[Rfam]
RNA sequence: CUACCACUCAGGCUCCUGGCUGGAAUCCAGCUCUCAGCUGAUUCCAGGCUCUAGCCAUGGAUUAACUAUAAG
Numbered sequence: 001c002u003a004c005c006a007c008u009c010a011g012g013c014u015c016c017u018g019g020c021u022g023g024a025a026u027c028c029a030g031c032u033c034u035c036a037g038c039u040g041a042u043u044c045c046a047g048g049c050u051c052u053a054g055c056c057a058u059g060g061a062u063u064a065a066c067u068a069u070a071a072g
Base pairs, nucleotide, nucleotide: 008065011062013060014059017057018056019055020054021053022052023051024050028040029039030038031037
RNA: mir-344 microRNA precursor family